[Rfam]
RNA sequence: UUUGGAUCCAUGAUGUGAGAUAUACUGCGUUAUCUUUCUGCAAUAGCCUUGACUGGCUUGGAAGAUGCUAUUCUAUUACUGAGAUCCAAA
Numbered sequence: 001u002u003u004g005g006a007u008c009c010a011u012g013a014u015g016u017g018a019g020a021u022a023u024a025c026u027g028c029g030u031u032a033u034c035u036u037u038c039u040g041c042a043a044u045a046g047c048c049u050u051g052a053c054u055g056g057c058u059u060g061g062a063a064g065a066u067g068c069u070a071u072u073c074u075a076u077u078a079c080u081g082a083g084a085u086c087c088a089a090a
Stems, first nucleotide, its partner, number of pairs: 001090007